[Rfam]
RNA: Plastid-ycf2 5UTR RNA
Organism: Nicotiana tabacum
RNA sequence: GUGCAUCCAAUAGGAAUUGAACCUACGAAUUUGCUAAUUAUGAUUUUGAUGCUUUAACCAACCAGCCAUGGAUGC
Numbered sequence: 001g002u003g004c005a006u007c008c009a010a011u012a013g014g015a016a017u018u019g020a021a022c023c024u025a026c027g028a029a030u031u032u033g034c035u036a037a038u039u040a041u042g043a044u045u046u047u048g049a050u051g052c053u054u055u056a057a058c059c060a061a062c063c064a065g066c067c068a069u070g071g072a073u074g075c
Stems, first nucleotide, its partner, number of pairs: 003075006011025004040069003045065002048062001050060002